[Rfam]
RNA sequence: GUUGAUCAUGUGUAUUCCUGGGUAAAUAACAUUUAUUUAUUUAACCAUGUUAUUGCUUGAGAAUACACGUGGUCGAC
Numbered sequence: 001g002u003u004g005a006u007c008a009u010g011u012g013u014a015u016u017c018c019u020g021g022g023u024a025a026a027u028a029a030c031a032u033u034u035a036u037u038u039a040u041u042u043a044a045c046c047a048u049g050u051u052a053u054u055g056c057u058u059g060a061g062a063a064u065a066c067a068c069g070u071g072g073u074c075g076a077c
Base pairs, nucleotide, nucleotide: 001077002076003075004074005073008070009069010068012066013065014064015063016062017061019059020058021057022056023055025054026053027052028051029050030049031048
The record is a 77-nucleotide RNA sequence from Stegodyphus mimosarum, which matches "mir-137 microRNA precursor family" in Rfam. Pairs were carried over by alignment from the consensus structure, which was predicted with RNAalifold. The match comes from Rfam's covariance-model search (63 bits). The family is grouped with related families in Rfam's "mir-137 clan".